The family of this 71-nucleotide RNA sequence from Anopheles darlingi is "mir-3 microRNA precursor family".
[Rfam]
RNA sequence: AUUAUGCGUCAAACUACGUUCAGACGAUGCUCCAUUUCAUACGCAUCACUGGGCAAAGUUUGUCGCAUGAA
Numbered sequence: 001a002u003u004a005u006g007c008g009u010c011a012a013a014c015u016a017c018g019u020u021c022a023g024a025c026g027a028u029g030c031u032c033c034a035u036u037u038c039a040u041a042c043g044c045a046u047c048a049c050u051g052g053g054c055a056a057a058g059u060u061u062g063u064c065g066c067a068u069g070a071a
Stems, first nucleotide, its partner, number of pairs: 005067004010062005018054002021051003
The match comes from Rfam's covariance-model search (58 bits).